[Rfam]
RNA: U1A polyadenylation inhibition element (PIE)
RNA sequence: CCACACAGCAUUGUACCCAGAAUCUGUCUCCAGACAUUGCACCUGGUGCUGUUAGCUUGUGAUUAAAUAUUUUU
Numbered sequence: 001c002c003a004c005a006c007a008g009c010a011u012u013g014u015a016c017c018c019a020g021a022a023u024c025u026g027u028c029u030c031c032a033g034a035c036a037u038u039g040c041a042c043c044u045g046g047u048g049c050u051g052u053u054a055g056c057u058u059g060u061g062a063u064u065a066a067a068u069a070u071u072u073u074u
Stems, first nucleotide, its partner, number of pairs: 005052005017046004023034004